[Rfam]
The family of this 34-nucleotide RNA sequence from Pararcticibacter amylolyticus is "DUF805b RNA".
RNA sequence: AAGGGAAAUGCCGAAAGCCCAAAAAGAGUAGGCA
Numbered sequence: 001a002a003g004g005g006a007a008a009u010g011c012c013g014a015a016a017g018c019c020c021a022a023a024a025a026g027a028g029u030a031g032g033c034a
Stems, first nucleotide, its partner, number of pairs: 003020003010033003

Pairs were carried over by alignment from the consensus structure, which is taken from published work.